[Rfam]
RNA sequence: GGUUAGGUUUUCUAGGGUUCCGCAGCUAUUCUGGUCUGGUCCGAGAGAAAACCCGCAGCUUGCGCUGUGACACGGAGGGAUAAAAGCCUGGGAGAU
Numbered sequence: 001g002g003u004u005a006g007g008u009u010u011u012c013u014a015g016g017g018u019u020c021c022g023c024a025g026c027u028a029u030u031c032u033g034g035u036c037u038g039g040u041c042c043g044a045g046a047g048a049a050a051a052c053c054c055g056c057a058g059c060u061u062g063c064g065c066u067g068u069g070a071c072a073c074g075g076a077g078g079g080a081u082a083a084a085a086g087c088c089u090g091g092g093a094g095a096u
Stems, first nucleotide, its partner, number of pairs: 007052006015042002020039002022036001023033003054069006071091001073094001077089003

The family of this 96-nucleotide RNA sequence from Paenibacillus faecis is "Guanidine-I riboswitch aptamer".
The organism belongs to Paenibacillus, within Bacteria.
Rfam 15.1 lists 1,509 matches to the family in 1,281 species.
Rfam's curators write: This family represents a conserved RNA structure found upstream of the ykkC and yxkD genes in Bacillus subtilis and related genes in other bacteria. The function of this family is unclear although it has been suggested that it may function to switch on efflux pumps and detoxification systems in response to harmful environmental molecules.
It scores 78 bits against the family's covariance model.